[Rfam]
RNA sequence: UCGGUUGUUGAUGCAGCAUCAUCAAGAUUCUCAUAUACAUAUCAAAACCCUAAUUAAAAAUUAGGAGAUUUUUCAAUUCCAUGUGAAUCUUGAUGGUGCUGCGCCUACAAAAAA
Numbered sequence: 001u002c003g004g005u006u007g008u009u010g011a012u013g014c015a016g017c018a019u020c021a022u023c024a025a026g027a028u029u030c031u032c033a034u035a036u037a038c039a040u041a042u043c044a045a046a047a048c049c050c051u052a053a054u055u056a057a058a059a060a061u062u063a064g065g066a067g068a069u070u071u072u073u074c075a076a077u078u079c080c081a082u083g084u085g086a087a088u089c090u091u092g093a094u095g096g097u098g099c100u101g102c103g104c105c106u107a108c109a110a111a112a113a114a
Base pairs, nucleotide, nucleotide: 010105012103013102014101015100016099017098018097019096020095021094022093023092024091025090026089027088028087029086030085032083033082
Notes:
mir-172 microRNA precursor family: a 114-nucleotide RNA sequence from Brassica oleracea. A reference for the family is Jones-Rhoades and Bartel (2004), "Computational Identification of Plant MicroRNAs and Their Targets, Including a Stress-Induced miRNA", Mol Cell. Rfam describes the family as follows. mir-172 has been experimentally verified in Arabidopsis thaliana. This family is thought to target mRNAs coding for APETALA2-like transcription factors. The mature sequence is excised from the 3' arm of the hairpin.